[Rfam]
RNA: Small nucleolar RNA SNORD125
Organism: Heliornis fulica
RNA sequence: GCUGGGAACAGCUUCUCAUGAUGACCCUUCUCUCUGAUGGCACUGGUGGUGAUGAUCAUCAAACCAAAGCCUCUAAGAAGUUGGCUGAAGAAGCUGCUCCUUG
Numbered sequence: 001g002c003u004g005g006g007a008a009c010a011g012c013u014u015c016u017c018a019u020g021a022u023g024a025c026c027c028u029u030c031u032c033u034c035u036g037a038u039g040g041c042a043c044u045g046g047u048g049g050u051g052a053u054g055a056u057c058a059u060c061a062a063a064c065c066a067a068a069g070c071c072u073c074u075a076a077g078a079a080g081u082u083g084g085c086u087g088a089a090g091a092a093g094c095u096g097c098u099c100c101u102u103g
Stems, first nucleotide, its partner, number of pairs: 007098001009096007